[Rfam]
RNA: TPP riboswitch aptamer (THI element)
RNA sequence: AACAAUUGAACGGGGAGCCUGCCGCGACAGGCUGAGAGGAGCGUACUCGCUCGACCCGCAUCACCUGAUCUGGUUAAUACCAGCGGAGGGAUUUUAAAUUCACUCACG
Numbered sequence: 001a002a003c004a005a006u007u008g009a010a011c012g013g014g015g016a017g018c019c020u021g022c023c024g025c026g027a028c029a030g031g032c033u034g035a036g037a038g039g040a041g042c043g044u045a046c047u048c049g050c051u052c053g054a055c056c057c058g059c060a061u062c063a064c065c066u067g068a069u070c071u072g073g074u075u076a077a078u079a080c081c082a083g084c085g086g087a088g089g090g091a092u093u094u095u096a097a098a099u100u101c102a103c104u105c106a107c108g
Base pairs, nucleotide, nucleotide: 006096008094009093010092011058012057013056014055017032018031019030020029021028039052040051041050042049043048064089065088066087070083071082072081073080
Dot-bracket structure: .....(.(((((((..(((((......)))))......(((((....)))))..)))).....(((...((((......))))...)))..))).)............